This 160-nucleotide RNA from Emergomyces pasteurianus belongs to the Rfam family "A. fumigatus sRNA Afu_254". Taxonomically the source falls in Emergomyces pasteurianus (Eukaryota, Fungi, leotiomyceta, Eurotiomycetidae). The match comes from Rfam's covariance-model search (89 bits). The literature on the family includes a 2008 paper in Nucleic Acids Res by Jochl et al., "Small ncRNA transcriptome analysis from Aspergillus fumigatus suggests a novel mechanism for regulation of protein synthesis".
[Rfam]
RNA sequence: AUACAUCCAAACAUUGCAACCAAAUAACUUACCGAAUUUUCCAAAAGCAAAAAUUCACCACCAAGCCCACCCUUCCAAAAUGGCUCCCUGCACAUGCAACUGCUGCUCCGGCGACUGCAACUCCUGCAGCUGCACCAGCUGCUCUGUAAGCUAUAGCAAC
Dot-bracket structure: ........................................................................................(((....(((.....)))....)))...(((......((....))......)))..................